[Rfam]
RNA sequence: GCUAACGCAAAGUUAAUGAAACGGAGAAAGAUUGUGACUAUCAAUAUGCUAUUUGCAAGUGUAACAACCGCAUGUCUAAUGGUUGCUUUUCUCGGUAGAUAAUUCGCUUAUUCGUAUUAUUCGAUAGUACGUAACUACGCAAAAGAGCACGCAAGGCAAUUGGCGACUUCGGUCGCCUUUUUUUAUG
Numbered sequence: 001g002c003u004a005a006c007g008c009a010a011a012g013u014u015a016a017u018g019a020a021a022c023g024g025a026g027a028a029a030g031a032u033u034g035u036g037a038c039u040a041u042c043a044a045u046a047u048g049c050u051a052u053u054u055g056c057a058a059g060u061g062u063a064a065c066a067a068c069c070g071c072a073u074g075u076c077u078a079a080u081g082g083u084u085g086c087u088u089u090u091c092u093c094g095g096u097a098g099a100u101a102a103u104u105c106g107c108u109u110a111u112u113c114g115u116a117u118u119a120u121u122c123g124a125u126a127g128u129a130c131g132u133a134a135c136u137a138c139g140c141a142a143a144a145g146a147g148c149a150c151g152c153a154a155g156g157c158a159a160u161u162g163g164c165g166a167c168u169u170c171g172g173u174c175g176c177c178u179u180u181u182u183u184u185a186u187g
Stems, first nucleotide, its partner, number of pairs: 002094001047055002074083003147157002150155001162177006

This 187-nucleotide RNA from Azomonas macrocytogenes belongs to the Rfam family "PhrS". Its family is annotated with quorum sensing in the Gene Ontology. A search with the family's covariance model found it, with a score of 54 bits.